[Rfam]
RNA: Bacterial RNase P class A
Nucleotides: 476
Stems, first nucleotide, its partner, number of pairs: 001472010011461001012395007020079008084459003088456005093271004106267005111125005126140001127138004141262002146260002148256003163202002165198003171192002210228006229251001230249008275352004285343006320335005359378008
Number, partner (000 for none) and nucleotide at each position: 001472c002471c003470a004469g005468c006467c007466g008465g009464c010463c011461g012395g013394g014393c015392g016391g017390c018389c019000g020079c021078u022077g023076c024075c025074g026073g027072a028000c029000u030000u031000c032000g033000u034000u035000g036000u037000g038000g039000c040000g041000a042000a043000a044000c045000g046000c047000g048000c049000u050000c051000u052000a053000a054000a055000g056000g057000c058000g059000c060000g061000c062000a063000a064000g065000c066000a067000a068000g069000a070000c071000a072027u073026c074025c075024g076023g077022u078021g079020g080000a081000g082000g083000a084459a085458a086457g087000u088456c089455c090454g091453g092452g093271c094270u095269c096268c097000u098000u099000g100000a101000u102000g103000a104000c105000a106267c107266g108265g109264u110263g111125g112124c113123g114122g115121c116000u117000a118000a119000c120000g121115g122114c123113c124112g125111c126140c127138g128137g129136g130135g131000g132000c133000g134000a135130c136129c137128c138127c139000a140126g141262g142261g143000a144000a145000a146260g147259u148256g149255c150254c151000a152000c153000a154000g155000a156000g157000a158000a159000c160000a161000u162000a163202c164201c165198g166197c167196c168000c169000g170000c171192c172191u173000u174000c175000g176000c177000u178000g179000c180000u181000u182000u183000g184000c185000a186000g187000c188000u189000u190000c191172g192171g193000c194000g195000c196167g197166g198165u199000a200000a201164g202163g203000g204000u205000g206000a207000a208000a209000a210228g211227g212226u213225g214224c215223g216000g217000u218000a219000a220000g221000a222000g223215c224214g225213c226212a227211c228210c229251g230249c231248g232247c233246u234245u235244c236243u237242g238000g239000u240000a241000a242237c243236a244235g245234a246233g247232g248231c249230g250000g251229c252000a253000g254150g255149g256148c257000a258000a259147a260146c261142c262141c263110c264109a265108c266107c267106g268096g269095g270094a271093g272000c273000a274000a275352g276351a277350u278349c279000g280000a281000a282000u283000a284000g285343g286342g287341a288340u289339g290338g291000g292000c293000g294000c295000g296000c297000g298000g299000a300000g301000c302000g303000g304000g305000a306000a307000a308000c309000c310000g311000c312000a313000g314000a315000c316000g317000c318000g319000g320335g321334g322333c323332g324331u325000g326000u327000c328000a329000u330000c331324g332323c333322g334321c335320u336000a337000c338290u339289c340288a341287u342286c343285c344000g345000g346000g347000u348000u349278g350277a351276u352275u353000g354000c355000a356000c357000g358000a359378g360377g361376c362375g363374u364373c365372u366371g367000g368000c369000a370000a371366c372365a373364g374363g375362c376361g377360u378359c379000c380000c381000a382000g383000a384000u385000g386000a387000a388000u389018g390017g391016c392015c393014g394013u395012c396000g397000c398000g399000g400000a401000g402000c403000a404000u405000u406000u407000a408000g409000g410000c411000c412000a413000a414000c415000a416000c417000c418000c419000g420000g421000c422000a423000u424000g425000c426000c427000g428000g429000u430000g431000u432000u433000g434000g435000g436000c437000u438000u439000u440000c441000u442000c443000c444000a445000g446000a447000c448000a449000g450000a451000a452092c453091c454090c455089g456088g457086c458085u459084u460000a461011c462000a463010g464009g465008c466007c467006g468005g469004c470003u471002g472001g473000u474000a475000a476000u